[Rfam]
The family of this 63-nucleotide sequence from Desulfacinum hydrothermale is "Fluoride riboswitch aptamer (crcB RNA motif)".
RNA sequence: UGCGAUCUAGGCGAUGAGGCUCGCCUUGGAACCGCCCUUCGGGCUGAUGGCCUCUAGGGAAGC
Numbered sequence: 001u002g003c004g005a006u007c008u009a010g011g012c013g014a015u016g017a018g019g020c021u022c023g024c025c026u027u028g029g030a031a032c033c034g035c036c037c038u039u040c041g042g043g044c045u046g047a048u049g050g051c052c053u054c055u056a057g058g059g060a061a062g063c
Base pairs, nucleotide, nucleotide: 010025011024012023013022016054017053018052019051020050021049034044035043036042

Description
The family's consensus secondary structure is taken from published work. Lineage of the source: Bacteria > Thermodesulfobacteriota > Syntrophobacteria > Syntrophobacteraceae > Desulfacinum hydrothermale.